[Rfam]
The record is a 111-nucleotide RNA sequence from Pedobacter rhizosphaerae, which matches "SAM riboswitch aptamer (S box leader)" in Rfam. Its Rfam clan is "SAM clan". A search with the family's covariance model found it, with a score of 74 bits.
Nucleotides: 111
Base pairs, nucleotide, nucleotide: 001111002110003109004108005107006106007105008104013042014041015040016039017038021031022030023029025076027074028073043068044067045066046065048064049063050060051059052058072103078100079099080098081097082096083095084094085093086092
Number, partner (000 for none) and nucleotide at each position: 001111g002110a003109u004108u005107u006106a007105u008104a009000a010000a011000g012000a013042a014041g015040u016039g017038g018000c019000g020000a021031g022030a023029g024000a025076c026000u027074g028073g029023c030022u031021c032000u033000a034000a035000g036000a037000c038017c039016c040015a041014c042013u043068g044067g045066c046065a047000a048064c049063c050060c051059u052058c053000a054000g055000a056000a057000a058052g059051a060050g061000a062000a063049g064048g065046u066045g067044c068043c069000a070000a071000u072103u073028c074027c075000u076025g077000a078100c079099c080098g081097a082096g083095u084094a085093a086092c087000a088000u089000g090000g091000a092086g093085u094084u095083a096082u097081u098080u099079g100078g101000a102000g103072a104008u105007a106006u107005a108004a109003a110002u111001u